[Rfam]
RNA sequence: AUAUAUGAUUAGGAUGGCUUUCAUAUAAGUUCGAAAAUAGGGUUCGGAUGUUUCUACGAAAUCACCGUAAAUGAUUUCUCUAUGAAGGUGAAUGUUUUGGCU
Numbered sequence: 001a002u003a004u005a006u007g008a009u010u011a012g013g014a015u016g017g018c019u020u021u022c023a024u025a026u027a028a029g030u031u032c033g034a035a036a037a038u039a040g041g042g043u044u045c046g047g048a049u050g051u052u053u054c055u056a057c058g059a060a061a062u063c064a065c066c067g068u069a070a071a072u073g074a075u076u077u078c079u080c081u082a083u084g085a086a087g088g089u090g091a092a093u094g095u096u097u098u099g100g101c102u
Stems, first nucleotide, its partner, number of pairs: 018088008029049007058078007